[Rfam]
RNA sequence: UGCUGGCCUAUUGUGCAUUACAUUGUGCCACUCUCUCAGCAGUUGCUGUGAGAGUGGUACAAUGUAAUGCACAAUAGGCCAGCA
Numbered sequence: 001u002g003c004u005g006g007c008c009u010a011u012u013g014u015g016c017a018u019u020a021c022a023u024u025g026u027g028c029c030a031c032u033c034u035c036u037c038a039g040c041a042g043u044u045g046c047u048g049u050g051a052g053a054g055u056g057g058u059a060c061a062a063u064g065u066a067a068u069g070c071a072c073a074a075u076a077g078g079c080c081a082g083c084a
Stems, first nucleotide, its partner, number of pairs: 001084003005080014021064015

Rfam assigns this 84-nucleotide sequence from Gopherus agassizii to the family "mir-130 microRNA precursor family".
Its family is annotated with RISC complex and miRNA-mediated post-transcriptional gene silencing in the Gene Ontology.
For this family Rfam cites "Identification of tissue-specific microRNAs from mouse" (Lagos-Quintana et al., Curr Biol, 2002).